[Rfam]
RNA sequence: GUUGUUCAAUAAUGAGGCACAGAAUAAGCGCUGGGCAGUACCUGACACCCAUGGGGAGUGGCUCUCUACUGCAUUUCUUCUGAGAGCAGC
Numbered sequence: 001g002u003u004g005u006u007c008a009a010u011a012a013u014g015a016g017g018c019a020c021a022g023a024a025u026a027a028g029c030g031c032u033g034g035g036c037a038g039u040a041c042c043u044g045a046c047a048c049c050c051a052u053g054g055g056g057a058g059u060g061g062c063u064c065u066c067u068a069c070u071g072c073a074u075u076u077c078u079u080c081u082g083a084g085a086g087c088a089g090c
Base pairs, nucleotide, nucleotide: 001090002089003088004087005086